Description
Shown here is an 87-nucleotide RNA sequence from Paenibacillus darwinianus, a member of the family "c-di-GMP-I riboswitch aptamer". Taxonomically the source falls in Paenibacillus (Bacteria, Bacillota, Caryophanales, Paenibacillaceae). The family's consensus secondary structure is taken from published work.

[Rfam]
RNA sequence: AUAUACCUAUGGCAAACUCGUCCGAAAGGCGGGGACGCAAAACCACAGGUCUUCCGCCGAUUCGGCGAUGAUGGCUGGGCUGCAUGC
Numbered sequence: 001a002u003a004u005a006c007c008u009a010u011g012g013c014a015a016a017c018u019c020g021u022c023c024g025a026a027a028g029g030c031g032g033g034g035a036c037g038c039a040a041a042a043c044c045a046c047a048g049g050u051c052u053u054c055c056g057c058c059g060a061u062u063c064g065g066c067g068a069u070g071a072u073g074g075c076u077g078g079g080c081u082g083c084a085u086g087c
Stems, first nucleotide, its partner, number of pairs: 012038002017033004022029002041081001043079002046077003049072003056066004